[Rfam]
RNA sequence: GCUUGAUGAUGAUGUCUUCAGGACUGAGCAAAUUGUAGUUGGUCCUUCAUUUGCAUGGUUGAUGUAAUCCUGUUUCAAGACGGGGCUGAGAGCAGC
Numbered sequence: 001g002c003u004u005g006a007u008g009a010u011g012a013u014g015u016c017u018u019c020a021g022g023a024c025u026g027a028g029c030a031a032a033u034u035g036u037a038g039u040u041g042g043u044c045c046u047u048c049a050u051u052u053g054c055a056u057g058g059u060u061g062a063u064g065u066a067a068u069c070c071u072g073u074u075u076c077a078a079g080a081c082g083g084g085g086c087u088g089a090g091a092g093c094a095g096c
Stems, first nucleotide, its partner, number of pairs: 001093004
RNA: Small nucleolar RNA SNORD21
Organism: Albula goreensis